[Rfam]
The family of this 110-nucleotide sequence from Gracilibacillus dipsosauri is "SAM riboswitch aptamer (S box leader)".

RNA sequence: CUCUUAUUAAGAGCGGUGGAGGGAAUGGCCCAAUGAAGCCCGGCAACCUAUAAACUAAAUGUUUACAAGGUGCUAAAUCCAGCAAACGUCAAAAGUUUGGAAGAUAAGAG
Numbered sequence: 001c002u003c004u005u006a007u008u009a010a011g012a013g014c015g016g017u018g019g020a021g022g023g024a025a026u027g028g029c030c031c032a033a034u035g036a037a038g039c040c041c042g043g044c045a046a047c048c049u050a051u052a053a054a055c056u057a058a059a060u061g062u063u064u065a066c067a068a069g070g071u072g073c074u075a076a077a078u079c080c081a082g083c084a085a086a087c088g089u090c091a092a093a094a095g096u097u098u099g100g101a102a103g104a105u106a107a108g109a110g
Stems, first nucleotide, its partner, number of pairs: 001110008013041001015040003021031003026081003042074004047070002051065004078102001083099005
The match comes from Rfam's covariance-model search (88 bits).